Shown here is a 95-nucleotide RNA sequence from Tefnutvirus siom18, a member of the family "wcaG RNA". The match comes from Rfam's covariance-model search (94 bits).
RNA sequence: UAUUUUUUCUUGCUUUAGAAAAAGUAAGUGGUGCGGAUGGGGUUACCCCGCCAGGUUUCUUGUUUCCUGUCAAAGAACAAGUGGCGUGCAUGUGU
Numbered sequence: 001u002a003u004u005u006u007u008u009c010u011u012g013c014u015u016u017a018g019a020a021a022a023a024g025u026a027a028g029u030g031g032u033g034c035g036g037a038u039g040g041g042g043u044u045a046c047c048c049c050g051c052c053a054g055g056u057u058u059c060u061u062g063u064u065u066c067c068u069g070u071c072a073a074a075g076a077a078c079a080a081g082u083g084g085c086g087u088g089c090a091u092g093u094g095u
Stems, first nucleotide, its partner, number of pairs: 009028007038050005052069004059081006
Dot-bracket structure: ........(((((((......))))))).........(((((...))))).[[[[...((((((.]]]]......))))))..............
Taxonomically the source falls in Tefnutvirus siom18 (Viruses, Uroviricota, Caudoviricetes, Tefnutvirus).
Pairs were carried over by alignment from the consensus structure, which is taken from published work.
It is annotated as a cis-regulatory element.